[Rfam]
RNA sequence: GGCCUCCGGGUGCUUACCACAGGCUGUGUUCUUACACUGCCUGUAUAGAAAGAGGAGACAAAGUAAACCUACCCUAUAUACACCUCAGCCCAGGCCUGUGCAUAGUCUGUAUUGUGAAUGGGGAGAAAAAG
Numbered sequence: 001g002g003c004c005u006c007c008g009g010g011u012g013c014u015u016a017c018c019a020c021a022g023g024c025u026g027u028g029u030u031c032u033u034a035c036a037c038u039g040c041c042u043g044u045a046u047a048g049a050a051a052g053a054g055g056a057g058a059c060a061a062a063g064u065a066a067a068c069c070u071a072c073c074c075u076a077u078a079u080a081c082a083c084c085u086c087a088g089c090c091c092a093g094g095c096c097u098g099u100g101c102a103u104a105g106u107c108u109g110u111a112u113u114g115u116g117a118a119u120g121g122g123g124a125g126a127a128a129a130a131g
Stems, first nucleotide, its partner, number of pairs: 002059001004057004020043003026037004072123006086109003090105001092103001094101002
Shown here is a 131-nucleotide RNA sequence from Dipodomys ordii, a member of the family "Small nucleolar RNA SNORA51".
It scores 132 bits against the family's covariance model.
NCBI's taxonomy places the organism under Eukaryota, Metazoa, Deuterostomia, Euteleostomi, Dipodomys.
It is annotated as an H/ACA-box small nucleolar RNA.
ACA51 is a member of the H/ACA class of snoRNA that guide the sites of modification of uridines to pseudouridines.